[Rfam]
RNA sequence: CGAGAUAACUCUCUCUAAGGAACUCGGCAAAAUGGCCCCGUAACUUCGGAAGAAGGGGUGCCCACUGAUAAAGUGGGUCGCAGUGAAGAGAUCCAGGCGACUGUUUACCAAAAACACAGGUCUCCGCAAACUCGUAAGAGGACGUAUGGGGGCUGACGCCUGCCCAGUGCCGGAAGGUUAAGGAAGUCGGUCAGCGUAAGUGAAGCUGGCGACCGAAGCCCCGGUGAACGGCGGCCGUAACUAUAACGGUCCUAAGGUAGCGAAAUUCCUUGUCGGGUAAGUUCCGACCCGCACGAAAGGCGUAACGAUCUGGAUGGUGUCUCAGAGAGAGACUCG
Numbered sequence: 001c002g003a004g005a006u007a008a009c010u011c012u013c014u015c016u017a018a019g020g021a022a023c024u025c026g027g028c029a030a031a032a033u034g035g036c037c038c039c040g041u042a043a044c045u046u047c048g049g050a051a052g053a054a055g056g057g058g059u060g061c062c063c064a065c066u067g068a069u070a071a072a073g074u075g076g077g078u079c080g081c082a083g084u085g086a087a088g089a090g091a092u093c094c095a096g097g098c099g100a101c102u103g104u105u106u107a108c109c110a111a112a113a114a115c116a117c118a119g120g121u122c123u124c125c126g127c128a129a130a131c132u133c134g135u136a137a138g139a140g141g142a143c144g145u146a147u148g149g150g151g152g153c154u155g156a157c158g159c160c161u162g163c164c165c166a167g168u169g170c171c172g173g174a175a176g177g178u179u180a181a182g183g184a185a186g187u188c189g190g191u192c193a194g195c196g197u198a199a200g201u202g203a204a205g206c207u208g209g210c211g212a213c214c215g216a217a218g219c220c221c222c223g224g225u226g227a228a229c230g231g232c233g234g235c236c237g238u239a240a241c242u243a244u245a246a247c248g249g250u251c252c253u254a255a256g257g258u259a260g261c262g263a264a265a266u267u268c269c270u271u272g273u274c275g276g277g278u279a280a281g282u283u284c285c286g287a288c289c290c291g292c293a294c295g296a297a298a299g300g301c302g303u304a305a306c307g308a309u310c311u312g313g314a315u316g317g318u319g320u321c322u323c324a325g326a327g328a329g330a331g332a333c334u335c336g
Base pairs, nucleotide, nucleotide: 001336002335003334004333009331010330011329012328013327014326015325016324018322019321020320035059036058037057038056039055044049060078061077062076063075064074065073066071079083091315092314093313094312095311096310097309098307099306102116103115104114119154120153121152122151123150124149125148126147127144131140132139133138157302158301159300160299162232163231164230167229168228169225170224171223172222173221176220177219178218182214183213186210187209188208189207190206191205194201195200233251234250235249236248237247238246252256262289272288273287274286275285276284277283

The family of this 336-nucleotide part of an RNA from Trichormus azollae is "Bacterial large subunit ribosomal RNA". Lineage of the source: Bacteria > Cyanophyceae > Nostocales > Trichormus > Trichormus azollae. Its Rfam clan is "LSU clan". Rfam links the family to the GO terms structural constituent of ribosome and ribosome. Pairs were carried over by alignment from the consensus structure, which is taken from published work.